The family of this 70-nucleotide RNA sequence is "L2-Alphaproteobacteria ribosomal protein leader".
The literature on the family includes a 2020 paper in BMC Microbiol by Eckert and Weinberg, "Discovery of 20 novel ribosomal leader candidates in bacteria and archaea".
Rfam classes the family as a cis-regulatory leader.
RNA sequence: GGGGACCUUCGGGGCCCUCUCUCGAACCGACGGGUCCCAAGGACCCGCGAAGCACAACGGAAGACAGGAA
Numbered sequence: 001g002g003g004g005a006c007c008u009u010c011g012g013g014g015c016c017c018u019c020u021c022u023c024g025a026a027c028c029g030a031c032g033g034g035u036c037c038c039a040a041g042g043a044c045c046c047g048c049g050a051a052g053c054a055c056a057a058c059g060g061a062a063g064a065c066a067g068g069a070a
Base pairs, nucleotide, nucleotide: 001018002017003016004015006014007013008012029048031047032046033045034044035043036042037041